[Rfam]
permuted transfer-messenger RNA: a 239-nucleotide RNA sequence from Synechococcus sp. GreenBA-s.
Rfam's curators put it in the seed alignment.
Bacterial tmRNA, also known as 10Sa RNA or SsrA, is named for its dual tRNA and mRNA-like properties.
Lineage of the source: Bacteria > Cyanophyceae > Synechococcales > Synechococcaceae > Synechococcus.

RNA sequence: GGUGGCUCACACCGGUGUUUCGGACAGCGGUUCGAUUCCGCUCAGCUCCAUGCCUGGGUUCUGGCGUCAUGCCAGGCCGCUCCGCCCCUGCCUCCGGCAGAUCAGGCGGACCUCCCGGGGCUGCCAUGGUUUCGACGGGGCAUAAGGAGAGUGACUGAAGCCUGCUCGGUAAGAGCAAACCCGUAACAGCGAACAACAUCGUUCGUUUCUCCCGUCAAGCCGCCCCUGUGGCUGCCUGA
Numbered sequence: 001g002g003u004g005g006c007u008c009a010c011a012c013c014g015g016u017g018u019u020u021c022g023g024a025c026a027g028c029g030g031u032u033c034g035a036u037u038c039c040g041c042u043c044a045g046c047u048c049c050a051u052g053c054c055u056g057g058g059u060u061c062u063g064g065c066g067u068c069a070u071g072c073c074a075g076g077c078c079g080c081u082c083c084g085c086c087c088c089u090g091c092c093u094c095c096g097g098c099a100g101a102u103c104a105g106g107c108g109g110a111c112c113u114c115c116c117g118g119g120g121c122u123g124c125c126a127u128g129g130u131u132u133c134g135a136c137g138g139g140g141c142a143u144a145a146g147g148a149g150a151g152u153g154a155c156u157g158a159a160g161c162c163u164g165c166u167c168g169g170u171a172a173g174a175g176c177a178a179a180c181c182c183g184u185a186a187c188a189g190c191g192a193a194c195a196a197c198a199u200c201g202u203u204c205g206u207u208u209c210u211c212c213c214g215u216c217a218a219g220c221c222g223c224c225c226c227u228g229u230g231g232c233u234g235c236c237u238g239a
Base pairs, nucleotide, nucleotide: 001156002155003154005152016142017141018140020138021137022136026042027041028040029039030038043123044122045121046120047119048118049117
Its family is annotated with RNA catabolic process in the Gene Ontology.